[Rfam]
RNA: Small nucleolar RNA snoR2/U65
RNA sequence: GGUUCAAUGCCACGUUGCUGGUAGCCAUUUGGCAUUGACCGGCAAUGCUAUGAUUGGACCUAAAUCAAUUUCUUGUUUUGCUGACUGAUAGGAAUCUUUGGAUCUGAUUUCUGUUGAUUCAUGGAGCCGAUUACAGUGAUUACAUCC
Number, nucleotide and partner (000 for none) at each position: 001g000002g059003u058004u057005c056006a055007a054008u053009g051010c000011c000012a000013c047014g046015u045016u044017g043018c042019u000020g040021g039022u038023a000024g033025c032026c031027a000028u000029u000030u000031g026032g025033c024034a000035u000036u000037g000038a022039c021040c020041g000042g018043c017044a016045a015046u014047g013048c000049u000050a000051u009052g000053a008054u007055u006056g005057g004058a003059c002060c000061u000062a000063a000064a000065u000066c000067a000068a000069u000070u000071u000072c000073u000074u000075g000076u000077u000078u139079u138080g137081c136082u135083g000084a000085c000086u000087g000088a000089u000090a000091g128092g127093a000094a000095u000096c124097u123098u000099u000100g120101g119102a118103u117104c116105u000106g000107a000108u000109u000110u000111c000112u000113g000114u000115u000116g104117a103118u102119u101120c100121a000122u000123g097124g096125a000126g000127c092128c091129g000130a000131u000132u000133a000134c000135a082136g081137u080138g079139a078140u000141u000142a000143c000144a000145u000146c000147c000